RNA sequence: GGAUGUGAGGGCUAUCUGGCUGCGACAUUGGUCACCCUAUUGAUCGCCAGGGUUGAUUUGGCUGAUCUGGCUGGUUAGGCGAGUGCCCCCUUCAUCCCUCACCGCUCCAUGUGCGAUCCUCCCGAAGCUCCGCGCUCAGUCAAAGAGGACGACCUUCCCGGAUAGAGGCGGACCGUUCUUUAGUCAAGGGUAUAUGAGUAGCUGCGCUCUCUUGCUAGAACAAGCUCCCAAGGUCCAUAGCUUUGAAAUUUGCUUAUGAUAGUUUGGGGUGAGUUAAAUUUUGAACUUCUCUUUGUUGAAGUUUUCUGGAUUUU
Numbered sequence: 001g002g003a004u005g006u007g008a009g010g011g012c013u014a015u016c017u018g019g020c021u022g023c024g025a026c027a028u029u030g031g032u033c034a035c036c037c038u039a040u041u042g043a044u045c046g047c048c049a050g051g052g053u054u055g056a057u058u059u060g061g062c063u064g065a066u067c068u069g070g071c072u073g074g075u076u077a078g079g080c081g082a083g084u085g086c087c088c089c090c091u092u093c094a095u096c097c098c099u100c101a102c103c104g105c106u107c108c109a110u111g112u113g114c115g116a117u118c119c120u121c122c123c124g125a126a127g128c129u130c131c132g133c134g135c136u137c138a139g140u141c142a143a144a145g146a147g148g149a150c151g152a153c154c155u156u157c158c159c160g161g162a163u164a165g166a167g168g169c170g171g172a173c174c175g176u177u178c179u180u181u182a183g184u185c186a187a188g189g190g191u192a193u194a195u196g197a198g199u200a201g202c203u204g205c206g207c208u209c210u211c212u213u214g215c216u217a218g219a220a221c222a223a224g225c226u227c228c229c230a231a232g233g234u235c236c237a238u239a240g241c242u243u244u245g246a247a248a249u250u251u252g253c254u255u256a257u258g259a260u261a262g263u264u265u266g267g268g269g270u271g272a273g274u275u276a277a278a279u280u281u282u283g284a285a286c287u288u289c290u291c292u293u294u295g296u297u298g299a300a301g302u303u304u305u306c307u308g309g310a311u312u313u314u
Base pairs, nucleotide, nucleotide: 001108002107003106005102006101007100008099009098010097011096014092018090019089024087026085027084028083029082031080032079033078035074036073037070038069039068042067043066044065045064046062047061048060117170118168119167120166121165122139124137125136127135128134140162141161147158148157149156201253202252208247210245214241215240224238276314277313278312280309281308283306284305285302286301287300288299289298

The record is a 314-nucleotide RNA sequence from Sarcophilus harrisii, which matches "7SK RNA" in Rfam.
From the family's description: 7SK was discovered as an abundant small nuclear RNA in the mid-70s but a possible function has only recently been suggested.
The literature on the family includes a 1991 paper in Mol Cell Biol by Wassarman and Steitz, "Structural analyses of the 7SK ribonucleoprotein (RNP), the most abundant human small RNP of unknown function".
It is annotated as a non-coding RNA gene.
Pairs were carried over by alignment from the consensus structure, which is taken from published work.
Taxonomically the source falls in Sarcophilus (Eukaryota, Craniata, Amniota, Metatheria).